[Rfam]
This 348-nucleotide RNA from Rhodobacteraceae bacterium WD3A24 belongs to the Rfam family "Alphaproteobacteria transfer-messenger RNA". The organism belongs to Paracoccaceae, within Bacteria.

RNA sequence: CCCCUUGAGCGGCACGGCGCGCGCGCCUAUAUUGGAGGUGUCCCGCAAGGGACUAUGGCGAUAAACGCGCACGGAAUAAGCGGAUCGGACCCGGGGGCGGUACCCGGCGGCUCCACCAGAUCACCCGCGUUGGGGGGCAUGGGGCCGAAACAGGAUCGACGAACGUGUAAAGGUGUUGCUUUCGCCCGGUGAGCUACCACCGUUAUCGGUGCACAAAGUACAGUUGCCAACGACAACCGUGCUCCGGUCGCCGUUGCUGCGUAAGCAGUAACGAGACCGAAACUUAAGCCCUUGCGCCUAGCAGCGUAAGGCGGGGUUCGCAGGCACCUGGCAACAGAAGCCUGCACU
Numbered sequence: 001c002c003c004c005u006u007g008a009g010c011g012g013c014a015c016g017g018c019g020c021g022c023g024c025g026c027c028u029a030u031a032u033u034g035g036a037g038g039u040g041u042c043c044c045g046c047a048a049g050g051g052a053c054u055a056u057g058g059c060g061a062u063a064a065a066c067g068c069g070c071a072c073g074g075a076a077u078a079a080g081c082g083g084a085u086c087g088g089a090c091c092c093g094g095g096g097g098c099g100g101u102a103c104c105c106g107g108c109g110g111c112u113c114c115a116c117c118a119g120a121u122c123a124c125c126c127g128c129g130u131u132g133g134g135g136g137g138c139a140u141g142g143g144g145c146c147g148a149a150a151c152a153g154g155a156u157c158g159a160c161g162a163a164c165g166u167g168u169a170a171a172g173g174u175g176u177u178g179c180u181u182u183c184g185c186c187c188g189g190u191g192a193g194c195u196a197c198c199a200c201c202g203u204u205a206u207c208g209g210u211g212c213a214c215a216a217a218g219u220a221c222a223g224u225u226g227c228c229a230a231c232g233a234c235a236a237c238c239g240u241g242c243u244c245c246g247g248u249c250g251c252c253g254u255u256g257c258u259g260c261g262u263a264a265g266c267a268g269u270a271a272c273g274a275g276a277c278c279g280a281a282a283c284u285u286a287a288g289c290c291c292u293u294g295c296g297c298c299u300a301g302c303a304g305c306g307u308a309a310g311g312c313g314g315g316g317u318u319c320g321c322a323g324g325c326a327c328c329u330g331g332c333a334a335c336a337g338a339a340g341c342c343u344g345c346a347c348u
Base pairs, nucleotide, nucleotide: 040053041052042051043050044049057186058185059184060183061182067179068178069176070175071174072173081165082164085162086161087160091107092106093105094104095103108147109146110145111144112143113142114141187202188201189200190199193212194211196210197209198208314329315328316327317326320345321344322343323342324341325340